RNA sequence: CUUCAGGGAGCCGAGCCACAGCGGCUCGUCGGCCGCGCGCUCCUGGCCGUAGGUGGCGAGAAGGGCCUGGGCCUC
Numbered sequence: 001c002u003u004c005a006g007g008g009a010g011c012c013g014a015g016c017c018a019c020a021g022c023g024g025c026u027c028g029u030c031g032g033c034c035g036c037g038c039g040c041u042c043c044u045g046g047c048c049g050u051a052g053g054u055g056g057c058g059a060g061a062a063g064g065g066c067c068u069g070g071g072c073c074u075c
Base pairs, nucleotide, nucleotide: 014026015025016024017023033069038065043060044059047056048055049054
Notes
The family of this 75-nucleotide RNA from Streptomyces albireticuli is "ASpks TB sRNA". The family has 77 seed sequences and 9,052 matches in Rfam 15.1. NCBI's taxonomy places the organism under Bacteria, Bacillati, Kitasatosporales, Streptomycetaceae, Streptomyces. The family's consensus secondary structure is taken from published work. A search with the family's covariance model found it, with a score of 75 bits.